Record summary
The family of this 64-nucleotide RNA sequence from Clostridium saccharoperbutylacetonicum is "RAGATH-18 RNA". About the family: Actinobacteria, Firmicutes, Fusobacteria, Thermotogae (1 example). It is annotated as a small RNA.
[Rfam]
Nucleotides: 064
Base pairs, nucleotide, nucleotide: 001062002061003060004059009051010050011049012048013047022046023045024044030039031038032037
Number, partner (000 for none) and nucleotide at each position: 001062c002061c003060u004059u005000u006000g007000g008000a009051g010050c011049a012048a013047c014000a015000u016000a017000u018000c019000a020000a021000a022046c023045u024044g025000g026000a027000g028000u029000a030039g031038u032037c033000u034000u035000c036000u037032g038031a039030c040000a041000a042000a043000a044024c045023a046022g047013g048012u049011u050010g051009c052000a053000u054000u055000g056000a057000a058000u059004a060003a061002g062001g063000a064000a
The sequence is in the family's curated seed alignment.